[Rfam]
RNA sequence: GUUGAAGAUAGAGGCGCAGUGACUAAGAGUACUUCUAAGGAGUUAAGUGUAAACUAUGACUUAGAAUGAAAGGAGUUAUUGCCGAAGCUUUAAAAAUUGCACUAAUUUUUAGGGUUGGAUCUAUAAUUAAUAGUUAUAGAACUGUCACUGAAUGAGUGAAGUGCUAUCUUAUAU
Numbered sequence: 001g002u003u004g005a006a007g008a009u010a011g012a013g014g015c016g017c018a019g020u021g022a023c024u025a026a027g028a029g030u031a032c033u034u035c036u037a038a039g040g041a042g043u044u045a046a047g048u049g050u051a052a053a054c055u056a057u058g059a060c061u062u063a064g065a066a067u068g069a070a071a072g073g074a075g076u077u078a079u080u081g082c083c084g085a086a087g088c089u090u091u092a093a094a095a096a097u098u099g100c101a102c103u104a105a106u107u108u109u110u111a112g113g114g115u116u117g118g119a120u121c122u123a124u125a126a127u128u129a130a131u132a133g134u135u136a137u138a139g140a141a142c143u144g145u146c147a148c149u150g151a152a153u154g155a156g157u158g159a160a161g162u163g164c165u166a167u168c169u170u171a172u173a174u
Stems, first nucleotide, its partner, number of pairs: 006169006016082009033066007086116012117143002120140008145159005